[Rfam]
RNA sequence: UUUCUUCAAAUGUGAACAGAGCCUAGGAGGACAUGCGUCACUGGUAACGGUGGGGUGUGAAGCUUCUCUGACAACUUAGCCUCUCGGAUGUUUCGGGCACACCGGUCUGUGAGGAAGGGUGUGGUACUCCUAGCAGCAAGGGGGUACGGAG
Numbered sequence: 001u002u003u004c005u006u007c008a009a010a011u012g013u014g015a016a017c018a019g020a021g022c023c024u025a026g027g028a029g030g031a032c033a034u035g036c037g038u039c040a041c042u043g044g045u046a047a048c049g050g051u052g053g054g055g056u057g058u059g060a061a062g063c064u065u066c067u068c069u070g071a072c073a074a075c076u077u078a079g080c081c082u083c084u085c086g087g088a089u090g091u092u093u094c095g096g097g098c099a100c101a102c103c104g105g106u107c108u109g110u111g112a113g114g115a116a117g118g119g120u121g122u123g124g125u126a127c128u129c130c131u132a133g134c135a136g137c138a139a140g141g142g143g144g145u146a147c148g149g150a151g
Stems, first nucleotide, its partner, number of pairs: 002016003027068005032059005038053006083097004099122003107114002127143005

The family of this 151-nucleotide RNA from Candidatus Burkholderia verschuerenii is "Group II catalytic intron D1-D4-7". Its family is annotated with Group II intron splicing in the Gene Ontology. Taxonomically the source falls in Burkholderia (Bacteria, Pseudomonadati, Burkholderiales, Burkholderiaceae). About the family: Group II introns are found in rRNA, tRNA and mRNA of organelles in fungi, plants and protists, and also in mRNA in bacteria. On this family, see Lehmann and Schmidt, Crit Rev Biochem Mol Biol 2003: "Group II introns: structure and catalytic versatility of large natural ribozymes". Pairs were carried over by alignment from the consensus structure. A search with the family's covariance model found it, with a score of 79 bits.